[Rfam]
RNA: abiF RNA
Organism: Planococcus lenghuensis
RNA sequence: CCCACCACGCCUCUUCACAAUGCGGACCACGGUGGGU
Numbered sequence: 001c002c003c004a005c006c007a008c009g010c011c012u013c014u015u016c017a018c019a020a021u022g023c024g025g026a027c028c029a030c031g032g033u034g035g036g037u
Stems, first nucleotide, its partner, number of pairs: 001036006008024003